[Rfam]
RNA sequence: CCUUCCGAAAUUUCCCUCAGGAUAGCUGCAACUGUGUCUAGUUUUAUGAGGUAAAGCGAAUGAUUAGAGGAUUCUGGGAUGUAAUAUCCUGGACCUAUUCUCAAACUUUGAAUGGGUAAGAUAUUACAGUUGCUUAACUGAACUGUAAUUUUGAAUAGUAGUUGCUAGUGGGCCAUUCCGGGUAAGCUGGACUGGCGAUGCGGGAUCAACCGAACGAUAUGGUACGGCGCCUAAUUGUUCGCUCAGUUGGAUAGAAAAGGUGUUAGUUCAUCUAGACAGCAGGACGGUGGCCAUGGAAGUCGGAAUCCGCUAAGGAGUGUGUAACAACUCACCUGCCGAAUGAAGUAGCCCUGAAAAUGGAUGGCGCUUAAGCGAACAGCCUAACCAUGUCUGUCAUCCUAAUGUCGUAUUAUAGGGUGACAAGUAGGAAGGCGUGAUGGAUAUUGAAAAGUAUAUGUGUAAACUUAUAUGGAAUGUCCAUUAGUGCAGAU
Numbered sequence: 001c002c003u004u005c006c007g008a009a010a011u012u013u014c015c016c017u018c019a020g021g022a023u024a025g026c027u028g029c030a031a032c033u034g035u036g037u038c039u040a041g042u043u044u045u046a047u048g049a050g051g052u053a054a055a056g057c058g059a060a061u062g063a064u065u066a067g068a069g070g071a072u073u074c075u076g077g078g079a080u081g082u083a084a085u086a087u088c089c090u091g092g093a094c095c096u097a098u099u100c101u102c103a104a105a106c107u108u109u110g111a112a113u114g115g116g117u118a119a120g121a122u123a124u125u126a127c128a129g130u131u132g133c134u135u136a137a138c139u140g141a142a143c144u145g146u147a148a149u150u151u152u153g154a155a156u157a158g159u160a161g162u163u164g165c166u167a168g169u170g171g172g173c174c175a176u177u178c179c180g181g182g183u184a185a186g187c188u189g190g191a192c193u194g195g196c197g198a199u200g201c202g203g204g205a206u207c208a209a210c211c212g213a214a215c216g217a218u219a220u221g222g223u224a225c226g227g228c229g230c231c232u233a234a235u236u237g238u239u240c241g242c243u244c245a246g247u248u249g250g251a252u253a254g255a256a257a258a259g260g261u262g263u264u265a266g267u268u269c270a271u272c273u274a275g276a277c278a279g280c281a282g283g284a285c286g287g288u289g290g291c292c293a294u295g296g297a298a299g300u301c302g303g304a305a306u307c308c309g310c311u312a313a314g315g316a317g318u319g320u321g322u323a324a325c326a327a328c329u330c331a332c333c334u335g336c337c338g339a340a341u342g343a344a345g346u347a348g349c350c351c352u353g354a355a356a357a358u359g360g361a362u363g364g365c366g367c368u369u370a371a372g373c374g375a376a377c378a379g380c381c382u383a384a385c386c387a388u389g390u391c392u393g394u395c396a397u398c399c400u401a402a403u404g405u406c407g408u409a410u411u412a413u414a415g416g417g418u419g420a421c422a423a424g425u426a427g428g429a430a431g432g433c434g435u436g437a438u439g440g441a442u443a444u445u446g447a448a449a450a451g452u453a454u455a456u457g458u459g460u461a462a463a464c465u466u467a468u469a470u471g472g473a474a475u476g477u478c479c480a481u482u483a484g485u486g487c488a489g490a491u
Stems, first nucleotide, its partner, number of pairs: 001432006011024001013022003028165006042121006054109001055107002061103003066098001068096003073093006080086001123149009172196004177191005201212003216391005222385001226381003235378001237377001240374003258352003262349004267344005279336005285309003291303002310314001315330001319328002392422009433486001435483010451470002457464002
Shown here is a 491-nucleotide part of an RNA from Blastocystis hominis, a member of the family "Eukaryotic large subunit ribosomal RNA". The base pairs follow the family's consensus structure, which is taken from published work. Gene Ontology terms of the family: ribosome and structural constituent of ribosome.